Shown here is an 87-nucleotide RNA from Nakamurella flavida, a member of the family "c-di-GMP-II-GAG riboswitch aptamer". NCBI's taxonomy places the organism under Bacteria, Actinomycetota, Nakamurellales, Nakamurellaceae, Nakamurella. A reference for the family is Weinberg et al. (2017), "Bioinformatic analysis of riboswitch structures uncovers variant classes with altered ligand specificity", Proc Natl Acad Sci U S A. The family's consensus secondary structure is taken from published work. A search with the family's covariance model found it, with a score of 56 bits. The family is grouped with related families in Rfam's "c-di-GMP_II riboswitch clan".
[Rfam]
RNA sequence: UCACGUGGGGGUGACCAUGAUCCGUAGGGGCUGAAUCGGUCGCCUUUGCCUCACGGGGAGUCAGAGGCGAGACCGAUCCCGACGGAA
Numbered sequence: 001u002c003a004c005g006u007g008g009g010g011g012u013g014a015c016c017a018u019g020a021u022c023c024g025u026a027g028g029g030g031c032u033g034a035a036u037c038g039g040u041c042g043c044c045u046u047u048g049c050c051u052c053a054c055g056g057g058g059a060g061u062c063a064g065a066g067g068c069g070a071g072a073c074c075g076a077u078c079c080c081g082a083c084g085g086a087a
Base pairs, nucleotide, nucleotide: 001087004084005083006082008080009079010078011077013062014061015060022056023055024054025053027051028050029049038074039073040070041069042068043067044066